[Rfam]
RNA sequence: CUAUUACCAAACCCUCUCUCCACCUCCACGUGGUGACCGCUGGGAGUUAUUUCUUAAAGAAAAGCUGCAGACGGAGAAGG
Numbered sequence: 001c002u003a004u005u006a007c008c009a010a011a012c013c014c015u016c017u018c019u020c021c022a023c024c025u026c027c028a029c030g031u032g033g034u035g036a037c038c039g040c041u042g043g044g045a046g047u048u049a050u051u052u053c054u055u056a057a058a059g060a061a062a063a064g065c066u067g068c069a070g071a072c073g074g075a076g077a078a079g080g
Stems, first nucleotide, its partner, number of pairs: 013080003017076001019074002022034003046066001048064001050062005
Dot-bracket structure: ............(((.(.((.(((.......)))...........(.(.(((((...))))).).)......)).).)))

Notes
This 80-nucleotide RNA from Hermetia illucens belongs to the Rfam family "drz-agam-1 ribozyme".